Background
Rfam assigns this 132-nucleotide RNA from Drosophila melanogaster to the family "Small nucleolar RNA psi28S-3316". NCBI's taxonomy places the organism under Eukaryota, Insecta, Neoptera, Eumetabola, Sophophora. It is one of the family's seed sequences. The base pairs follow the family's consensus structure, which was predicted with RNAfold. Rfam describes the family as follows. psi28S-3316 is a member of the H/ACA class of snoRNA. This family is responsible for guiding the modification of uridine 3316 in Drosophila 28S rRNA to pseudouridine. Its family is annotated with nucleolus and RNA processing in the Gene Ontology.
RNA sequence: AGCACCUAAAAGCGUUUUCUUAUCAGCUUGAUAAAUGCUCUUGAAAAUCGUAGAUGUGUGCAAUAGCAAUAUCUACAAUAGCUUGGGAUUCAGUUUCUAUAUAACUUCAAUCCGUUCAGAUUGUAAACAUCC
Numbered sequence: 001a002g003c004a005c006c007u008a009a010a011a012g013c014g015u016u017u018u019c020u021u022a023u024c025a026g027c028u029u030g031a032u033a034a035a036u037g038c039u040c041u042u043g044a045a046a047a048u049c050g051u052a053g054a055u056g057u058g059u060g061c062a063a064u065a066g067c068a069a070u071a072u073c074u075a076c077a078a079u080a081g082c083u084u085g086g087g088a089u090u091c092a093g094u095u096u097c098u099a100u101a102u103a104a105c106u107u108c109a110a111u112c113c114g115u116u117c118a119g120a121u122u123g124u125a126a127a128c129a130u131c132c
Stems, first nucleotide, its partner, number of pairs: 002061004006056001012051003015047005023037001025036001074125006085115001087113001088111003092106004